[Rfam]
RNA sequence: UCGGCACCGGUUCACCCCGCUGCUUCGGCUCGGGGACCCGGCGGCU
Numbered sequence: 001u002c003g004g005c006a007c008c009g010g011u012u013c014a015c016c017c018c019g020c021u022g023c024u025u026c027g028g029c030u031c032g033g034g035g036a037c038c039c040g041g042c043g044g045c046u
Stems, first nucleotide, its partner, number of pairs: 003046003007041004015035005022029002
RNA: L31-Actinobacteria ribosomal protein leader